[Rfam]
Shown here is a 132-nucleotide RNA from Zizania palustris, a member of the family "Small nucleolar RNA F1/F2/snoR5a". The family's consensus secondary structure was predicted with PFOLD. This family contains F1, F2 and snoR5a sequences, all of which are members of the the H/ACA class of snoRNA that guide the sites of modification of uridines to pseudouridines. Rfam classes the family as an H/ACA-box small nucleolar RNA.
RNA sequence: AAACGCCAUUUGGUAUCUGACAUGUGGUCUUCUUUUGUGACUGCUUGUCUCGAAAUGUGGCAUAUAACAAGGGGGUUGCGACAUUGGUGGCAACUCUAUGAGCCUUCAAUUACUAUGUAGCAGUUUACAUGU
Numbered sequence: 001a002a003a004c005g006c007c008a009u010u011u012g013g014u015a016u017c018u019g020a021c022a023u024g025u026g027g028u029c030u031u032c033u034u035u036u037g038u039g040a041c042u043g044c045u046u047g048u049c050u051c052g053a054a055a056u057g058u059g060g061c062a063u064a065u066a067a068c069a070a071g072g073g074g075g076u077u078g079c080g081a082c083a084u085u086g087g088u089g090g091c092a093a094c095u096c097u098a099u100g101a102g103c104c105u106u107c108a109a110u111u112a113c114u115a116u117g118u119a120g121c122a123g124u125u126u127a128c129a130u131g132u
Base pairs, nucleotide, nucleotide: 005061006060007059008058009057019049020048021047022046024044025043026042027041028040029039083110084109085108086107087106089104090103091102